[Rfam]
RNA sequence: GAAUAGCACUGUUUUGCUAUUUUCGGCCAAUAGCACAAUGACACGUGAAAAAAUUAUCCUAUAUGUCAUUGCGUUAUUGAUCGAGAAUAGCAAAAAGUGAUAUUC
Numbered sequence: 001g002a003a004u005a006g007c008a009c010u011g012u013u014u015u016g017c018u019a020u021u022u023u024c025g026g027c028c029a030a031u032a033g034c035a036c037a038a039u040g041a042c043a044c045g046u047g048a049a050a051a052a053a054u055u056a057u058c059c060u061a062u063a064u065g066u067c068a069u070u071g072c073g074u075u076a077u078u079g080a081u082c083g084a085g086a087a088u089a090g091c092a093a094a095a096a097g098u099g100a101u102a103u104u105c
Stems, first nucleotide, its partner, number of pairs: 002104004012095009022085005028079007036071008045062003050057001